This 215-nucleotide RNA sequence from Plantimonas leprariae belongs to the Rfam family "permuted transfer-messenger RNA". A search with the family's covariance model found it, with a score of 151 bits.
RNA sequence: GGCGAUAAACGGUCGAUGCAAUAAUCCAUUCGGACCCGGGGGCGGUACCCGGCGCCUCCACCCCAAGGCCUCGCAACCCGAGACCUUGCGGCGGGGGCGAAACAGGAUCGACGAGGGUGUAAAGAUCGAACUUUCGCUCGGCAUGGUACCGCCGUUAUCGGGCUAAAUUUAUAGUUGCCAACGACAACUAUGCGGAAGCCCGUCUCGCUGCUUAA
Numbered sequence: 001g002g003c004g005a006u007a008a009a010c011g012g013u014c015g016a017u018g019c020a021a022u023a024a025u026c027c028a029u030u031c032g033g034a035c036c037c038g039g040g041g042g043c044g045g046u047a048c049c050c051g052g053c054g055c056c057u058c059c060a061c062c063c064c065a066a067g068g069c070c071u072c073g074c075a076a077c078c079c080g081a082g083a084c085c086u087u088g089c090g091g092c093g094g095g096g097g098c099g100a101a102a103c104a105g106g107a108u109c110g111a112c113g114a115g116g117g118u119g120u121a122a123a124g125a126u127c128g129a130a131c132u133u134u135c136g137c138u139c140g141g142c143a144u145g146g147u148a149c150c151g152c153c154g155u156u157a158u159c160g161g162g163c164u165a166a167a168u169u170u171a172u173a174g175u176u177g178c179c180a181a182c183g184a185c186a187a188c189u190a191u192g193c194g195g196a197a198g199c200c201c202g203u204c205u206c207g208c209u210g211c212u213u214a215a
Stems, first nucleotide, its partner, number of pairs: 001138005014128004026117002030114003036052005053099007139154004